RNA sequence: AAAUUUCAUAGGCAAAGCAGUCGAAAGGCUGUGACGCAAAGCUAUAGGGCCUGAAAUGGCAGCCAGUUGCACCA
Numbered sequence: 001a002a003a004u005u006u007c008a009u010a011g012g013c014a015a016a017g018c019a020g021u022c023g024a025a026a027g028g029c030u031g032u033g034a035c036g037c038a039a040a041g042c043u044a045u046a047g048g049g050c051c052u053g054a055a056a057u058g059g060c061a062g063c064c065a066g067u068u069g070c071a072c073c074a
Base pairs, nucleotide, nucleotide: 012037013036017032018031019030020029021028022027040068041067042066043065047064048063049060050059051058
Shown here is a 74-nucleotide RNA sequence from Lachnospiraceae bacterium A10, a member of the family "c-di-GMP-I riboswitch aptamer". A search with the family's covariance model found it, with a score of 61 bits. NCBI's taxonomy places the organism under Bacteria, Bacillati, Bacillota, Clostridia, Lachnospiraceae. The family's consensus secondary structure is taken from published work.